RNA: msiK RNA
Organism: Microbacterium maritypicum
RNA sequence: CCCCACCGCUUCAUCACUACGGAUCGUCCGGCACGUACCUGCCGGUGAAGGAGAAACACA
Numbered sequence: 001c002c003c004c005a006c007c008g009c010u011u012c013a014u015c016a017c018u019a020c021g022g023a024u025c026g027u028c029c030g031g032c033a034c035g036u037a038c039c040u041g042c043c044g045g046u047g048a049a050g051g052a053g054a055a056a057c058a059c060a
Base pairs, nucleotide, nucleotide: 010052011051012050014048015047016046028045029044030043031042032041033040